[Rfam]
RNA sequence: CAGCACUUGAUACUAACCGAGCUAUCUACAUCCUAGCCUUGUGUCAGAGGCUUGUGAUGUGUUGUGAUAGCUGGGUUUAAGAAGUGCAAUAUUAAAACAAAAGCCGUGAGUCUGUUAGCCCAGUGUGUAAAGACACACUCUGAGUUAUAACUCAGUGGCACAACU
Dot-bracket structure: ..((((((......((((.((((((((((((((.((((((......)))))).).))))))....))))))).))))....))))))...............(((.................((((((....)))))).((((((....)))))).)))......

A member of the RNA family "Small Cajal body specific RNA 1" from Myotis lucifugus, 165 nucleotides long. The source organism's lineage runs through Eukaryota, Bilateria, Dipnotetrapodomorpha, Tetrapoda and Myotis. The family's consensus secondary structure was predicted with RNAalifold. Rfam links the family to the GO terms nucleolus, RNA processing and Cajal body. For this family Rfam cites "Cajal body-specific small nuclear RNAs: a novel class of 2'-O-methylation and pseudouridylation guide RNAs" (Darzacq et al., EMBO J, 2002). From the family's description: scaRNAs are a specific class of small nuclear RNAs which localise to the Cajal bodies and guide the modification of RNA polymerase II transcribed spliceosomal RNAs U1, U2, U4, U5 and U12. ACA35 belong to the H/ACA box class of guide RNAs as it has the predicted hairpin-hinge-hairpin-tail structure, conserved H/ACA-box motifs and is found associated with GAR1. It is predicted to guide pseudouridylation of the U2 spliceosomal snRNA at residue U89. It is annotated as a small Cajal body RNA. Rfam's curators put it in the seed alignment.